Source information:
SAM riboswitch aptamer (S box leader): a 110-nucleotide RNA sequence from Pontibacter akesuensis. Pairs were carried over by alignment from the consensus structure, which is taken from published work. Taxonomically the source falls in Pontibacter (Bacteria, Bacteroidota, Cytophagales, Hymenobacteraceae).
[Rfam]
RNA sequence: GAUUUAUAAAGAAGCGUGGAGAGACAGGCUCUAAGAAGCGCUAGCAACCUAACUACCGUAGUUAAGGUGCUAAUUCCUGAGCUCGGCAGGGUGCCGGGCGAAUAUAAAUU
Numbered sequence: 001g002a003u004u005u006a007u008a009a010a011g012a013a014g015c016g017u018g019g020a021g022a023g024a025c026a027g028g029c030u031c032u033a034a035g036a037a038g039c040g041c042u043a044g045c046a047a048c049c050u051a052a053c054u055a056c057c058g059u060a061g062u063u064a065a066g067g068u069g070c071u072a073a074u075u076c077c078u079g080a081g082c083u084c085g086g087c088a089g090g091g092u093g094c095c096g097g098g099c100g101a102a103u104a105u106a107a108a109u110u
Stems, first nucleotide, its partner, number of pairs: 001110008013042005021031003025079004043071004048067002050064004075102001081099006